Purine riboswitch aptamer: a 98-nucleotide sequence from Clostridium butyricum.
The sequence is in the family's curated seed alignment.
From the family's description: Riboswitches are metabolite binding domains within certain messenger RNAs that serve as precision sensors for their corresponding targets.
The source organism's lineage runs through Bacteria, Bacillota, Eubacteriales, Clostridium and Clostridium butyricum.

[Rfam]
RNA sequence: GAUACGGCACAUUAAAAAACUCAUAUAUACCCUGGAUAUGGCAGGGAGUAUCUACCGGAAACCUUAAAUUUCUGACUAUGAGUGAUAUUAAUAUAAGC
Dot-bracket structure: ..................(((((((....(((((.......))))).........((((((.......))))))..)))))))...............